[Rfam]
RNA sequence: UCACCCCUCGCGGGAGAGUCCGGCCCAGGCGCCCGCAGCGGCGCACGGGACGGACGCCGAAGGAGCAACUCUCCCCGCCAAACUCUCAGGCCCAGCACCGCGGGGGACAG
Numbered sequence: 001u002c003a004c005c006c007c008u009c010g011c012g013g014g015a016g017a018g019u020c021c022g023g024c025c026c027a028g029g030c031g032c033c034c035g036c037a038g039c040g041g042c043g044c045a046c047g048g049g050a051c052g053g054a055c056g057c058c059g060a061a062g063g064a065g066c067a068a069c070u071c072u073c074c075c076c077g078c079c080a081a082a083c084u085c086u087c088a089g090g091c092c093c094a095g096c097a098c099c100g101c102g103g104g105g106g107a108c109a110g
Stems, first nucleotide, its partner, number of pairs: 006105008019054004056091003059087002063085003070077001
Shown here is a 110-nucleotide sequence from Nakamurella endophytica, a member of the family "Glycine riboswitch aptamer". The family has 44 seed sequences and 9,425 matches in Rfam 15.1. The source organism's lineage runs through Bacteria, Bacillati, Actinomycetota, Nakamurellales and Nakamurella.